[Rfam]
RNA sequence: UGGUAAUUACCAAGGCUUUCAGAAGGCACUUUCUCAUUUGCUGUGGACAGAGCGUUUUCCCACUAGGUUUUCUUUCUGCUACAUUGCUAGCAUUCAGACUACUGGGGACAUUU
Numbered sequence: 001u002g003g004u005a006a007u008u009a010c011c012a013a014g015g016c017u018u019u020c021a022g023a024a025g026g027c028a029c030u031u032u033c034u035c036a037u038u039u040g041c042u043g044u045g046g047a048c049a050g051a052g053c054g055u056u057u058u059c060c061c062a063c064u065a066g067g068u069u070u071u072c073u074u075u076c077u078g079c080u081a082c083a084u085u086g087c088u089a090g091c092a093u094u095c096a097g098a099c100u101a102c103u104g105g106g107g108a109c110a111u112u113u
Stems, first nucleotide, its partner, number of pairs: 003053002007049001010046003026041003059106004066099001068097002077092003
The family of this 113-nucleotide RNA sequence from Myotis lucifugus is "Small nucleolar RNA SNORA32". The source organism's lineage runs through Eukaryota, Eutheria, Laurasiatheria, Yangochiroptera and Myotis. ACA32 is a member of the H/ACA class of snoRNA that guide the sites of modification of uridines to pseudouridines.